c-di-GMP-II-GAG riboswitch aptamer: a 108-nucleotide sequence.
RNA sequence: ACGACGUGGCGAGGCAGCGACACCGGGAGACGCACGGUCACCGCGUCCUGGACAACCGUCCAGGACGAGCUCCCGGUCGAGCCAGUGGUGAGACCGACGCCCCGGACC
Numbered sequence: 001a002c003g004a005c006g007u008g009g010c011g012a013g014g015c016a017g018c019g020a021c022a023c024c025g026g027g028a029g030a031c032g033c034a035c036g037g038u039c040a041c042c043g044c045g046u047c048c049u050g051g052a053c054a055a056c057c058g059u060c061c062a063g064g065a066c067g068a069g070c071u072c073c074c075g076g077u078c079g080a081g082c083c084a085g086u087g088g089u090g091a092g093a094c095c096g097a098c099g100c101c102c103c104g105g106a107c108c
Stems, first nucleotide, its partner, number of pairs: 005104002008101004013083003022077008036095002038091005
Dot-bracket structure: ....((.((((.(((......((((((((......[[[[[[[...........................))))))))...)))...]]]]]..]]..)))).))....
Gene Ontology terms of the family: cyclic-di-GMP binding and regulation of gene expression.